[Rfam]
The record is a 107-nucleotide sequence from Microvirga makkahensis, which matches "EcpR1" in Rfam. It scores 68 bits against the family's covariance model. The base pairs follow the family's consensus structure, which was predicted with WAR. Taxonomically the source falls in Microvirga (Bacteria, Pseudomonadati, Pseudomonadota, Alphaproteobacteria). Rfam's curators write: Perviously named SmelC291, SmrC10, or Sra33. According to its overproduction phenotype it was renamed Elongated Cell Phenotype RNA1. Induced by stress,EcpR1 negatively regulates cell cycle master regulatory genes dnaA and gcrA at post-transcriptional level by base pairing between its strongly conserved GC-rich loop and the target mRNAs. It's regulation is hfq-independent but requires RNase E to regulate dnaA.
RNA sequence: AUGCCCUACGGAUGCUCAGGUCCGCCGCAUCUCCUGGGACUUCGUGGGCUCGGCCGGGCUGGGAGCGGAUCGUUGCCUCCUCAACACCGCUUCCAGCCGGCCACCUU
Numbered sequence: 001a002u003g004c005c006c007u008a009c010g011g012a013u014g015c016u017c018a019g020g021u022c023c024g025c026c027g028c029a030u031c032u033c034c035u036g037g038g039a040c041u042u043c044g045u046g047g048g049c050u051c052g053g054c055c056g057g058g059c060u061g062g063g064a065g066c067g068g069a070u071c072g073u074u075g076c077c078u079c080c081u082c083a084a085c086a087c088c089g090c091u092u093c094c095a096g097c098c099g100g101c102c103a104c105c106u107u
Stems, first nucleotide, its partner, number of pairs: 003050001005048006015038006052102006059096005